The record is a 170-nucleotide sequence from Anoxybacillus flavithermus, which matches "glmS glucosamine-6-phosphate activated ribozyme aptamer" in Rfam.
The match comes from Rfam's covariance-model search (141 bits).
About the family: This entry contains a glucosamine-6-phosphate activated ribozyme that is found in the mRNA for GlmS. GlmS is an enzyme that uses fructose-6-phosphate and glutamine to generate glucosamine-6-phosphate.
Pairs were carried over by alignment from the consensus structure, which is taken from published work.
It is annotated as a riboswitch.
RNA sequence: GAUCGUAUAAAAGCGCCUGGACUAAGCUUGGACGGAAAAAAGCUUAGUUGACGAGGAGGAGGUUUAUCGAGUGUUCGGCGGAUGCCUCCCGGCUGAUGCGAUGACAGCCGCAAGUUCUUUCUUAAAACAAAGAGGCGACUCUUUGCACAAAGGAAAGAGCGUUCAUCGCA
Dot-bracket structure: ...................((((((((.(..........).))))))))........(((((....((((....))))......)))))((((((.........))))))...(((((((.......(((((((....)))))))........)))))))..........